[Rfam]
RNA sequence: AACUUUCUGAAUUCGUGCAGAGAUUUUGUCAGACACUAAUCCAUCAGGGCUGAUGAGACUUCCAAAAUAAGUGAAGUG
Numbered sequence: 001a002a003c004u005u006u007c008u009g010a011a012u013u014c015g016u017g018c019a020g021a022g023a024u025u026u027u028g029u030c031a032g033a034c035a036c037u038a039a040u041c042c043a044u045c046a047g048g049g050c051u052g053a054u055g056a057g058a059c060u061u062c063c064a065a066a067a068u069a070a071g072u073g074a075a076g077u078g
Stems, first nucleotide, its partner, number of pairs: 002077005008071001011068003016064002020061003024058007
RNA: mir-3492 microRNA precursor family
Organism: Schistosoma mansoni